[Rfam]
The record is a 77-nucleotide RNA sequence from Cnephaeus nilssonii, which matches "mir-9193 microRNA precursor family" in Rfam.
The family's consensus secondary structure was predicted with RNAalifold.
Taxonomically the source falls in Cnephaeus (Eukaryota, Vertebrata, Sarcopterygii, Chiroptera).
Gene Ontology terms of the family: miRNA-mediated post-transcriptional gene silencing and RISC complex.

RNA sequence: CUUGGGGGGAGGAGGAUGUCCCUCAGCCCAGAUUGCAAGAGGGUGCAGGCCAGGCUGAGGGACUCCACCGGUGCAUG
Numbered sequence: 001c002u003u004g005g006g007g008g009g010a011g012g013a014g015g016a017u018g019u020c021c022c023u024c025a026g027c028c029c030a031g032a033u034u035g036c037a038a039g040a041g042g043g044u045g046c047a048g049g050c051c052a053g054g055c056u057g058a059g060g061g062a063c064u065c066c067a068c069c070g071g072u073g074c075a076u077g
Base pairs, nucleotide, nucleotide: 003075004074006072009069014066015065016064018063019062020061021060022059023058024057025056026055027054028053031050033048034047035046036045037044